Nucleotides: 275
Base pairs, nucleotide, nucleotide: 001275004272005271006270010225011224012223019084020083021082022081023080094262095261096260097259098258103197104196105195110124111123112122113121114120125141126140127139128138129137130136149190150189151188152187165178166177167176227248228247229246230245231244232243233242234241235240
Number, partner (000 for none) and nucleotide at each position: 001275g002000g003000a004272g005271g006270c007000u008000g009000a010225a011224u012223a013000g014000c015000g016000u017000u018000u019084g020083c021082u022081u023080g024000g025000a026000a027000a028000c029000a030000u031000a032000c033000g034000g035000c036000u037000g038000u039000g040000a041000c042000u043000u044000u045000g046000u047000c048000c049000c050000u051000u052000g053000u054000g055000g056000a057000c058000a059000u060000u061000g062000a063000u064000c065000c066000a067000g068000c069000a070000a071000a072000g073000u074000u075000u076000a077000u078000u079000g080023c081022a082021a083020g084019c085000g086000g087000g088000u089000a090000a091000a092000g093000u094262c095261c096260g097259c098258g099000u100000a101000a102000g103197u104196g105195c106000g107000c108000u109000u110124g111123u112122c113121c114120c115000u116000a117000g118000u119000g120114g121113g122112g123111a124110c125141g126140u127139c128138a129137g130136u131000c132000a133000g134000u135000c136130g137129c138128u139127g140126a141125c142000g143000a144000g145000a146000u147000u148000u149190g150189g151188c152187u153000a154000c155000c156000a157000g158000c159000a160000a161000u162000u163000u164000c165178u166177c167176u168000c169000c170000g171000c172000a173000a174000g175000g176167a177166g178165a179000u180000u181000g182000a183000a184000a185000g186000c187152g188151g189150c190149c191000u192000c193000u194000a195105g196104c197103a198000c199000a200000c201000a202000g203000c204000u205000u206000c207000u208000a209000u210000a211000a212000g213000u214000c215000c216000a217000a218000u219000a220000c221000g222000c223012u224011g225010u226000a227248g228247g229246u230245c231244c232243c233242c234241u235240c236000g237000c238000a239000a240235g241234a242233g243232g244231g245230g246229g247228c248227u249000g250000a251000a252000a253000c254000u255000c256000a257000a258098u259097g260096c261095g262094g263000a264000u265000u266000a267000u268000u269000g270006g271005c272004c273000u274000a275001c